[Rfam]
RNA sequence: CUUACCGGAGGAUUUAUGGAUCCCGAUCCCACCCCUCUCCCCCGAUGGAGAUACGUUUUUUUCCGGUAAGCCUGCCCUGCGCUGUCUUACCGGCUACGUAAGACAGCGACGCUAA
Numbered sequence: 001c002u003u004a005c006c007g008g009a010g011g012a013u014u015u016a017u018g019g020a021u022c023c024c025g026a027u028c029c030c031a032c033c034c035c036u037c038u039c040c041c042c043c044g045a046u047g048g049a050g051a052u053a054c055g056u057u058u059u060u061u062u063c064c065g066g067u068a069a070g071c072c073u074g075c076c077c078u079g080c081g082c083u084g085u086c087u088u089a090c091c092g093g094c095u096a097c098g099u100a101a102g103a104c105a106g107c108g109a110c111g112c113u114a115a
Stems, first nucleotide, its partner, number of pairs: 001070011017031003036051005081107010
RNA: Magnesium riboswitch aptamer (Magnesium responsive RNA element)
Organism: Citrobacter rodentium